[Rfam]
RNA sequence: GCACCAUCCAGAGCGACCGAGAGACCUGGCUCGACGACGUCGCAGCAACCCCCCUCCUGACGGAGGGUGCGGGUGCUUCCGCCAGGUCCGAUGGAGC
Number, nucleotide and partner (000 for none) at each position: 001g097002c096003a000004c094005c093006a092007u091008c090009c000010a000011g000012a000013g043014c042015g041016a040017c039018c000019g000020a000021g032022a031023g030024a000025c000026c085027u084028g083029g082030c023031u022032c021033g000034a000035c000036g000037a000038c000039g017040u016041c015042g014043c013044a077045g076046c075047a074048a000049c073050c072051c069052c000053c067054c066055u000056c000057c000058u000059g000060a000061c000062g000063g000064a000065g000066g054067g053068u000069g051070c000071g000072g050073g049074u047075g046076c045077u044078u000079c000080c000081g089082c029083c028084a027085g026086g000087u000088c000089c081090g008091a007092u006093g005094g004095a000096g002097c001
A member of the RNA family "SAM riboswitch aptamer (S box leader)" from Cellulomonas triticagri, 97 nucleotides long. A reference for the family is Epshtein et al. (2003), "The riboswitch-mediated control of sulfur metabolism in bacteria", Proc Natl Acad Sci U S A. It scores 54 bits against the family's covariance model. Lineage of the source: Bacteria > Actinomycetota > Micrococcales > Cellulomonadaceae > Cellulomonas.